[Rfam]
RNA sequence: GAAAGGGUGACCGAUCGUGGGGAGGAGCGCGAGCGAAGCUGCGAGCCGAGGAACACGAACCGGAUAGAAGGCGGUGCCGACCAGAACGAGCGGGCAAAGCUUCGCGAAGUUCUCGCGAUCAAGGGGAGGCGGCGUAUAUCCGGCGGUUGUGCAGUGAAGGAGUACGUU
Numbered sequence: 001g002a003a004a005g006g007g008u009g010a011c012c013g014a015u016c017g018u019g020g021g022g023a024g025g026a027g028c029g030c031g032a033g034c035g036a037a038g039c040u041g042c043g044a045g046c047c048g049a050g051g052a053a054c055a056c057g058a059a060c061c062g063g064a065u066a067g068a069a070g071g072c073g074g075u076g077c078c079g080a081c082c083a084g085a086a087c088g089a090g091c092g093g094g095c096a097a098a099g100c101u102u103c104g105c106g107a108a109g110u111u112c113u114c115g116c117g118a119u120c121a122a123g124g125g126g127a128g129g130c131g132g133c134g135u136a137u138a139u140c141c142g143g144c145g146g147u148u149g150u151g152c153a154g155u156g157a158a159g160g161a162g163u164a165c166g167u168u
Stems, first nucleotide, its partner, number of pairs: 001016002005012002027168001034160001038155006044148005060143006071135003075131004081126002084112004090105004
RNA: Group II catalytic intron D1-D4-3